[Rfam]
RNA sequence: AGCUCUAUGAUCGAAUGCCAGUUUAGGCAAUAUACGCUAUUCUGAUUGUUACAUGACCAGAAAAUAAACGUUUAUGAGAGCU
Numbered sequence: 001a002g003c004u005c006u007a008u009g010a011u012c013g014a015a016u017g018c019c020a021g022u023u024u025a026g027g028c029a030a031u032a033u034a035c036g037c038u039a040u041u042c043u044g045a046u047u048g049u050u051a052c053a054u055g056a057c058c059a060g061a062a063a064a065u066a067a068a069c070g071u072u073u074a075u076g077a078g079a080g081c082u
Base pairs, nucleotide, nucleotide: 001082002081003080004079005078
Source information:
This 82-nucleotide sequence from Lactuca saligna belongs to the Rfam family "Small nucleolar RNA U54". Rfam 15.1 lists 614 matches to the family in 206 species. NCBI's taxonomy places the organism under Eukaryota, Mesangiospermae, asterids, Asteraceae, Lactuca. Gene Ontology terms of the family: RNA processing and nucleolus. Rfam's curators write: U54 is a C/D box small nucleolar RNA, which acts as a methylation guide for 18S ribosomal RNA in plants.